Shown here is a 69-nucleotide sequence from Bacteroides fragilis, a member of the family "Bacteroidetes FopS (family of paralogous sRNAs)".
Rfam's curators write: The RNA-binding protein RbpB and BTncRNA_FopS sRNA are involved in the post-transcription regulation of polysaccharide utilisation loci (PUL). FopS sRNAs function as post-transcriptional repressors by binding to the vicinity of the start codon of the first mRNA of target PUL polycistrons, typically corresponding to the cognate SusC homolog, impeding translation of the respective glycan transporter.
The source organism's lineage runs through Bacteria, Bacteroidia, Bacteroidales, Bacteroidaceae and Bacteroides fragilis.
The family has 12 seed sequences and 822 matches in Rfam 15.1.
The literature on the family includes a 2025 paper in Nat Commun by Ruttiger et al., "The global RNA-binding protein RbpB is a regulator of polysaccharide utilization in Bacteroides thetaiotaomicron".
The family's consensus secondary structure is taken from published work.
RNA sequence: GUGUUUUUCAUGGUAUUAGAUUUAAGGUUAAUAAAGAUUGGCUGUCCGGGAGGAUAGCCUUUUUUUUAU
Numbered sequence: 001g002u003g004u005u006u007u008u009c010a011u012g013g014u015a016u017u018a019g020a021u022u023u024a025a026g027g028u029u030a031a032u033a034a035a036g037a038u039u040g041g042c043u044g045u046c047c048g049g050g051a052g053g054a055u056a057g058c059c060u061u062u063u064u065u066u067u068a069u
Stems, first nucleotide, its partner, number of pairs: 040059007